[Rfam]
RNA sequence: UUACAAACAGGAGAUGGCAUUCUCCUUAACCGCCAUGUUGGCUGAUGAUGCCUGUUGUCCG
Number, nucleotide and partner (000 for none) at each position: 001u000002u000003a000004c000005a000006a000007a000008c000009a000010g025011g024012a023013g022014a000015u000016g052017g051018c050019a049020u048021u047022c013023u012024c011025c010026u000027u000028a000029a000030c000031c000032g042033c041034c040035a000036u000037g000038u000039u000040g034041g033042c032043u000044g000045a000046u000047g021048a020049u019050g018051c017052c016053u000054g000055u000056u000057g000058u000059c000060c000061g000
The family of this 61-nucleotide RNA from Paraburkholderia sp. DHOC27 is "Fluoride riboswitch aptamer (crcB RNA motif)". The family's consensus secondary structure is taken from published work. The organism belongs to Paraburkholderia, within Bacteria. Gene Ontology terms of the family: positive regulation of gene expression and response to fluoride.